A member of the RNA family "Mycobacterium sRNA Ms_AS-5" from Mycolicibacterium doricum, 45 nucleotides long.
Pairs were carried over by alignment from the consensus structure.
The family's RNA type in Rfam is small RNA.
[Rfam]
RNA sequence: AUCGGGGUACUGCCCGGUGAAGAUGGUCGGGCGGCUGGGCACGCA
Numbered sequence: 001a002u003c004g005g006g007g008u009a010c011u012g013c014c015c016g017g018u019g020a021a022g023a024u025g026g027u028c029g030g031g032c033g034g035c036u037g038g039g040c041a042c043g044c045a
Stems, first nucleotide, its partner, number of pairs: 012032007